[Rfam]
RNA: NoRC associated RNA, pRNA
RNA sequence: UGAUGGGGUCGUGCUGGGUGGCAUGUGGCCGCGCCUCCCUUCCGGGAGGUCCCCGAGACCCGCGGAUGGAGCCCCGCCUCCGUGAC
Numbered sequence: 001u002g003a004u005g006g007g008g009u010c011g012u013g014c015u016g017g018g019u020g021g022c023a024u025g026u027g028g029c030c031g032c033g034c035c036u037c038c039c040u041u042c043c044g045g046g047a048g049g050u051c052c053c054c055g056a057g058a059c060c061c062g063c064g065g066a067u068g069g070a071g072c073c074c075c076g077c078c079u080c081c082g083u084g085a086c
Stems, first nucleotide, its partner, number of pairs: 003083001005081001007080002011077001017075002020073002029064001030062002033059001035057003